[Rfam]
RNA sequence: UUUCCGAAGGGGUAAACCCAGGGUAACCUGGGGACACAAAGCCGCGGGUCCUGAUUGGUGGAUCGGUCAGGAUAGACGGGUUGGCGAG
Numbered sequence: 001u002u003u004c005c006g007a008a009g010g011g012g013u014a015a016a017c018c019c020a021g022g023g024u025a026a027c028c029u030g031g032g033g034a035c036a037c038a039a040a041g042c043c044g045c046g047g048g049u050c051c052u053g054a055u056u057g058g059u060g061g062a063u064c065g066g067u068c069a070g071g072a073u074a075g076a077c078g079g080g081u082u083g084g085c086g087a088g
Stems, first nucleotide, its partner, number of pairs: 012037002017032006040082004045078002048073011
This 88-nucleotide RNA from Pelobacter propionicus belongs to the Rfam family "c-di-GMP-I riboswitch aptamer".
GEMM was predicted in a large-scale screen for bacterial structured RNA regulatory elements.
The match comes from Rfam's covariance-model search (56 bits).
The source organism's lineage runs through Bacteria, Pseudomonadati, Thermodesulfobacteriota, Desulfuromonadales and Pelobacter propionicus.